[Rfam]
RNA sequence: UCCGCGCAAACGAUUAAAUGCUGUAUAUGUUUGAUGAAAUGGGUCGAAUGUUUCUACUACCAAGCCUAUCUUGGUGACUACAGUUUUUAGUGUAGAGACC
Numbered sequence: 001u002c003c004g005c006g007c008a009a010a011c012g013a014u015u016a017a018a019u020g021c022u023g024u025a026u027a028u029g030u031u032u033g034a035u036g037a038a039a040u041g042g043g044u045c046g047a048a049u050g051u052u053u054c055u056a057c058u059a060c061c062a063a064g065c066c067u068a069u070c071u072u073g074g075u076g077a078c079u080a081c082a083g084u085u086u087u088u089a090g091u092g093u094a095g096a097g098a099c100c
Stems, first nucleotide, its partner, number of pairs: 018086001020084006029049007058076007